[Rfam]
RNA sequence: UGAAAAGGUUUUUUCUUAACGACUUAAAAUAAGUAAGAUUUUUUGCUAGUCUGCUUUUUUUUAGCAGGCAACAUUGCCAAAUUGCGGGGACACCCUAAAGGCUCAGCUACUAAACGGUUAUGGAAACAUAACCGUGGCCGAGUUAAUAGCCCUGGGUAGAGUAACAAUGCUGAGCAUUAAGAACUUGUUUCUUGAAUGGGCAAUCCGCAGCCAAAUCCUUGGAAUUAUUUUUAGAAGCUUUUUUGAUUUUUAAAUGGUAAUUCCAAAAAUGGAUGCUGUUCACAGGCCAAAUGGCAAUGGGUGUUUCUCCUUGACUUCAGUGAGUUUUAGGUUCUAGGCUUUUUCUGAAGGGGGGGAAAUGCUUAAGAUAUGGUCGGUCUCUUGUGAAAACAAGAA
Numbered sequence: 001u002g003a004a005a006a007g008g009u010u011u012u013u014u015c016u017u018a019a020c021g022a023c024u025u026a027a028a029a030u031a032a033g034u035a036a037g038a039u040u041u042u043u044u045g046c047u048a049g050u051c052u053g054c055u056u057u058u059u060u061u062u063a064g065c066a067g068g069c070a071a072c073a074u075u076g077c078c079a080a081a082u083u084g085c086g087g088g089g090a091c092a093c094c095c096u097a098a099a100g101g102c103u104c105a106g107c108u109a110c111u112a113a114a115c116g117g118u119u120a121u122g123g124a125a126a127c128a129u130a131a132c133c134g135u136g137g138c139c140g141a142g143u144u145a146a147u148a149g150c151c152c153u154g155g156g157u158a159g160a161g162u163a164a165c166a167a168u169g170c171u172g173a174g175c176a177u178u179a180a181g182a183a184c185u186u187g188u189u190u191c192u193u194g195a196a197u198g199g200g201c202a203a204u205c206c207g208c209a210g211c212c213a214a215a216u217c218c219u220u221g222g223a224a225u226u227a228u229u230u231u232u233a234g235a236a237g238c239u240u241u242u243u244u245g246a247u248u249u250u251u252a253a254a255u256g257g258u259a260a261u262u263c264c265a266a267a268a269a270u271g272g273a274u275g276c277u278g279u280u281c282a283c284a285g286g287c288c289a290a291a292u293g294g295c296a297a298u299g300g301g302u303g304u305u306u307c308u309c310c311u312u313g314a315c316u317u318c319a320g321u322g323a324g325u326u327u328u329a330g331g332u333u334c335u336a337g338g339c340u341u342u343u344u345c346u347g348a349a350g351g352g353g354g355g356g357a358a359a360u361g362c363u364u365a366a367g368a369u370a371u372g373g374u375c376g377g378u379c380u381c382u383u384g385u386g387a388a389a390a391c392a393a394g395a396a
Base pairs, nucleotide, nucleotide: 005025006024007023009021011019012018029040072299073298074297075296076295078293079292083209084208085207086206087205088204093200094199095198210279211278215274216273217272218271225265283376285375286374287373288372289371301362302361303360304359305358306357307356308355309354310353311352381394382393383392384391385390
RNA: Group I catalytic intron